Alphaproteobacteria transfer-messenger RNA: a 392-nucleotide sequence from Afifella marina. Rfam links the family to the GO term RNA catabolic process. Taxonomically the source falls in Afifella marina (Bacteria, Pseudomonadati, Alphaproteobacteria, Afifella). By type it is a non-coding RNA gene.
[Rfam]
RNA sequence: AGCCUUUGAAAUUCGGCAGGGACCGCUUAUAUUGGCUCGCGUCGGCGCAAGCCGACUAUGGCGAUAAAUGGCCUACGGAAUAAGCCUAUCGGACCCGGGGGCGGUACCCGGCGCCUCCACCAUCAACGGCCCAGGGCAGAGUGCCUGGCAAAGCCGGAUUCCCUGCAAGGGGCCGCUGUUGAUGGGGGCGAAAUAGGAUCGACGAGGGUGUAAAGGUAGAACUUUCGCUCGGUAUGGUACCACCGUUAUCGGACCAAAACUUGUAGUUGCGAAUGACAACUAUGCUGAGGCUCGUCUCGCUGCGUAAUGCAGCCUGACUGCUUCGAUUCAAGCCCUGGCGGUUAGCCCCGUCAGGCGGGGUCCGGAGGCACCUGGCAACAGAAGCCUCCAUU
Numbered sequence: 001a002g003c004c005u006u007u008g009a010a011a012u013u014c015g016g017c018a019g020g021g022a023c024c025g026c027u028u029a030u031a032u033u034g035g036c037u038c039g040c041g042u043c044g045g046c047g048c049a050a051g052c053c054g055a056c057u058a059u060g061g062c063g064a065u066a067a068a069u070g071g072c073c074u075a076c077g078g079a080a081u082a083a084g085c086c087u088a089u090c091g092g093a094c095c096c097g098g099g100g101g102c103g104g105u106a107c108c109c110g111g112c113g114c115c116u117c118c119a120c121c122a123u124c125a126a127c128g129g130c131c132c133a134g135g136g137c138a139g140a141g142u143g144c145c146u147g148g149c150a151a152a153g154c155c156g157g158a159u160u161c162c163c164u165g166c167a168a169g170g171g172g173c174c175g176c177u178g179u180u181g182a183u184g185g186g187g188g189c190g191a192a193a194u195a196g197g198a199u200c201g202a203c204g205a206g207g208g209u210g211u212a213a214a215g216g217u218a219g220a221a222c223u224u225u226c227g228c229u230c231g232g233u234a235u236g237g238u239a240c241c242a243c244c245g246u247u248a249u250c251g252g253a254c255c256a257a258a259a260c261u262u263g264u265a266g267u268u269g270c271g272a273a274u275g276a277c278a279a280c281u282a283u284g285c286u287g288a289g290g291c292u293c294g295u296c297u298c299g300c301u302g303c304g305u306a307a308u309g310c311a312g313c314c315u316g317a318c319u320g321c322u323u324c325g326a327u328u329c330a331a332g333c334c335c336u337g338g339c340g341g342u343u344a345g346c347c348c349c350g351u352c353a354g355g356c357g358g359g360g361u362c363c364g365g366a367g368g369c370a371c372c373u374g375g376c377a378a379c380a381g382a383a384g385c386c387u388c389c390a391u392u
Stems, first nucleotide, its partner, number of pairs: 041056005060229005070222001073219004085208003089205003095111005112190007230245004235256003240252002358373004364389006

The match comes from Rfam's covariance-model search (299 bits).